[Rfam]
RNA: STAXI RNA
RNA sequence: CGUCAUCUGCGGAUGACAAUCCCAAUGCUCCGGUAACCUGCAAGGAGCGCCUUUCGGUGGUUACACGCCCAAUGUUUCCGCAGUCUGUAAGAAACGCCUUCGGGUGACUGCAAUUCAGACCUCCAUCGCCUUUAAGGAGGUGCCUUCGGGUGGCGGAUCG
Numbered sequence: 001c002g003u004c005a006u007c008u009g010c011g012g013a014u015g016a017c018a019a020u021c022c023c024a025a026u027g028c029u030c031c032g033g034u035a036a037c038c039u040g041c042a043a044g045g046a047g048c049g050c051c052u053u054u055c056g057g058u059g060g061u062u063a064c065a066c067g068c069c070c071a072a073u074g075u076u077u078c079c080g081c082a083g084u085c086u087g088u089a090a091g092a093a094a095c096g097c098c099u100u101c102g103g104g105u106g107a108c109u110g111c112a113a114u115u116c117a118g119a120c121c122u123c124c125a126u127c128g129c130c131u132u133u134a135a136g137g138a139g140g141u142g143c144c145u146u147c148g149g150g151u152g153g154c155g156g157a158u159c160g
Stems, first nucleotide, its partner, number of pairs: 002017006027048005033064006049058003074095005080111006096105003119141005126156005142151003